[Rfam]
The family of this 57-nucleotide RNA sequence is "Transposase-1 RNA".

RNA sequence: UUCAUAGGUUACCUCUGUCGUUACCUACAUAAGUAGAUACGGGAACGUAAUUGUUGA
Number, nucleotide and partner (000 for none) at each position: 001u000002u000003c000004a000005u000006a000007g052008g051009u050010u049011a048012c047013c000014u000015c000016u000017g000018u042019c041020g040021u039022u000023a000024c000025c036026u035027a034028c000029a000030u000031a000032a000033g000034u027035a026036g025037a000038u000039a021040c020041g019042g018043g000044a000045a000046c000047g012048u011049a010050a009051u008052u007053g000054u000055u000056g000057a000

About this RNA: Rfam classes the family as a small RNA.